[Rfam]
RNA: lin-4 microRNA precursor family
Nucleotides: 061
Stems, first nucleotide, its partner, number of pairs: 002057003006053004011048004016043006022036004
Number, partner (000 for none) and nucleotide at each position: 001000u002057c003056c004055c005000u006053g007052a008051g009050a010000c011048c012047u013046c014045a015000a016043g017042u018041g019040u020039g021038a022036g023035c024034g025033u026000a027000c028000u029000g030000u031000a032000g033025a034024u035023g036022c037000u038021u039020c040019a041018c042017a043016c044000c045014u046013g047012g048011g049000c050009u051008c052007u053006c054000u055004g056003g057002g058000u059000a060000c061000c